[Rfam]
RNA: Histone 3' UTR stem-loop
Organism: Ursus americanus
RNA sequence: CCAAAGGCUCUUUUCAGAGCCCCUAAUUUUCCUCCAAAAGAGCUGU
Numbered sequence: 001c002c003a004a005a006g007g008c009u010c011u012u013u014u015c016a017g018a019g020c021c022c023c024u025a026a027u028u029u030u031c032c033u034c035c036a037a038a039a040g041a042g043c044u045g046u
Stems, first nucleotide, its partner, number of pairs: 006021006